This 508-nucleotide RNA sequence from Streptomyces sp. ICC1 belongs to the Rfam family "Saccharopolyspora sRNA 350". Its family is annotated with regulation of secondary metabolite biosynthetic process in the Gene Ontology. A reference for the family is Liu et al. (2013), "Prediction and characterization of small non-coding RNAs related to secondary metabolites in Saccharopolyspora erythraea", PLoS One. Taxonomically the source falls in Streptomyces (Bacteria, Bacillati, Actinomycetota, Actinomycetes).

[Rfam]
RNA sequence: CGGGCGGUGUACUCCCAGAUGGCCUCCUCGUCGACGAGGGCGUCCUCGCCGAAGUAGGCGCCGUCGGCGACGGUCUGCAGGACGGCGUCGUCGCCGUAGGGGCCGGUGCCGAUCUGGUCGACGCGGCCGUGGGCCAGCAGGAAGACCUUGUCGGACGGGCUGCCGAAGGAGGUGAGCUCCUGGCCCGCCUCGAAAUCGAUCUGGUGGCAGCGCGCCGCCAGUUCGGUCAGGACGUCGGGGUCGUCGUAAUCGCGCAGGAUCGGGAGUUCGCCGAGUUCCGCGGGGAUCACCUGCACCUGCGUGCCGGUCUUGAUGAAUUCCACGCGUCCGUCGCCGACCGAGUAGCUCAGCCGCCGGUUGACCCGGUACGUGCCGCCCUGCACGGACACCCACGGGAGCAUCUUCAGCAGCCACCGCGAGGUGAUCUCCUGCAUCUGCGGCGCGGACUUGGUCGUGGUUGCCAAGUUCCGCGCGGCCGAUGUCCCCAGACUCCGCUGUGGCGCCUGGG
Dot-bracket structure: .....(((((.(...(.((.(...(..((.......(((((.....(((..(.((....((((.((((....(.((.(...(((((......))))).).)))....)))).....((.(.((..((..(..(((((...(.(.....((...(.(((((.(...(......)...).....))))).).))...))...)))))...)..))..)).).)).))))....))((....((.(((....(((((.((...((......)).....)).))))).))).))....)).)..)))...)))))...)).....)..).))(.(........).)..........(.(((...((.......)).))).)..)...).)))))((.((((.(((.(.(.(.......)).)..))).)))).)).....((.(.(((((((((((.......)))))).))))).).))(..(((.(.(((......))).))))....).